[Rfam]
RNA sequence: AAAGUCCUUCGGGGUCGGGUGAAAGUCCCAAUCGACGGUGAUGAAGAAAUUCUAAGCCCGUGAGCCUUUUCAUAAAGGCAGGAUUUGGUGUGAAUCCAAAGCCGACAGUAUAGUCUGGAUGGGAGAAGGACGUA
Numbered sequence: 001a002a003a004g005u006c007c008u009u010c011g012g013g014g015u016c017g018g019g020u021g022a023a024a025g026u027c028c029c030a031a032u033c034g035a036c037g038g039u040g041a042u043g044a045a046g047a048a049a050u051u052c053u054a055a056g057c058c059c060g061u062g063a064g065c066c067u068u069u070u071c072a073u074a075a076a077g078g079c080a081g082g083a084u085u086u087g088g089u090g091u092g093a094a095u096c097c098a099a100a101g102c103c104g105a106c107a108g109u110a111u112a113g114u115c116u117g118g119a120u121g122g123g124a125g126a127a128g129g130a131c132g133u134a
Base pairs, nucleotide, nucleotide: 004131005130006129007128008127009126010125017029018028019027031114032113033104034103035061036060037059038058056102057101064079065078066077084100085099086098087097088096106117107116108115